A member of the RNA family "SmY spliceosomal RNA" from Onchocerca flexuosa, 78 nucleotides long. On this family, see Jia et al., BMC Mol Biol 2007: "Systematic identification of non-coding RNA 2,2,7-trimethylguanosine cap structures in Caenorhabditis elegans". Pairs were carried over by alignment from the consensus structure, which is taken from published work.

RNA sequence: UGAUGUCUAAUCUUUAUUCAGGGCCUUGUCCAAGACCCGGGGAACAAUUUUUGGCUGUCUCCUCAGGAGGGGAGGCAC
Numbered sequence: 001u002g003a004u005g006u007c008u009a010a011u012c013u014u015u016a017u018u019c020a021g022g023g024c025c026u027u028g029u030c031c032a033a034g035a036c037c038c039g040g041g042g043a044a045c046a047a048u049u050u051u052u053g054g055c056u057g058u059c060u061c062c063u064c065a066g067g068a069g070g071g072g073a074g075g076c077a078c
Stems, first nucleotide, its partner, number of pairs: 021038003025034003056077009
Overview:
It scores 56 bits against the family's covariance model. Lineage of the source: Eukaryota > Eumetazoa > Bilateria > Ecdysozoa > Onchocerca. The family has 61 seed sequences and 408 matches in Rfam 15.1.